[Rfam]
RNA sequence: GCCCGGGUCCACUUCACUCGGAUCGUCCGGCACGUUCCUGCCGGUGAAGGGACGACAAC
Numbered sequence: 001g002c003c004c005g006g007g008u009c010c011a012c013u014u015c016a017c018u019c020g021g022a023u024c025g026u027c028c029g030g031c032a033c034g035u036u037c038c039u040g041c042c043g044g045u046g047a048a049g050g051g052a053c054g055a056c057a058a059c
Stems, first nucleotide, its partner, number of pairs: 010051001012049005027044006
The record is a 59-nucleotide sequence from Carbonactinospora thermoautotrophica, which matches "msiK RNA" in Rfam. Taxonomically the source falls in Carbonactinospora (Bacteria, Bacillati, Actinomycetota, Kitasatosporales). A search with the family's covariance model found it, with a score of 50 bits. Rfam classes the family as a cis-regulatory element.